Annotation
The family of this 166-nucleotide RNA from Heliobacterium mobile is "c-di-AMP riboswitch aptamer (ydaO/yuaA leader)". It scores 83 bits against the family's covariance model. NCBI's taxonomy places the organism under Bacteria, Bacillota, Eubacteriales, Heliobacteriaceae, Heliobacterium.
RNA sequence: GCUCGUACAAAGCCGAAUCCCCUAAUCGGGUACGGAGGAACCGCAGUCUUCCAGACUGUCGCUGUCAACAUUCCUUUUUGACAGCAGGGGUGAAUCUUCUCAGGAAGAGGGCCUACCUUUUCGGCCUAACCCGUCAGCUAACUCCGGAGGCUAAUGGAAAGGAUGG
Numbered sequence: 001g002c003u004c005g006u007a008c009a010a011a012g013c014c015g016a017a018u019c020c021c022c023u024a025a026u027c028g029g030g031u032a033c034g035g036a037g038g039a040a041c042c043g044c045a046g047u048c049u050u051c052c053a054g055a056c057u058g059u060c061g062c063u064g065u066c067a068a069c070a071u072u073c074c075u076u077u078u079u080g081a082c083a084g085c086a087g088g089g090g091u092g093a094a095u096c097u098u099c100u101c102a103g104g105a106a107g108a109g110g111g112c113c114u115a116c117c118u119u120u121u122c123g124g125c126c127u128a129a130c131c132c133g134u135c136a137g138c139u140a141a142c143u144c145c146g147g148a149g150g151c152u153a154a155u156g157g158a159a160a161g162g163a164u165g166g
Stems, first nucleotide, its partner, number of pairs: 011152004019030002033146005042087001088132003096107004110126004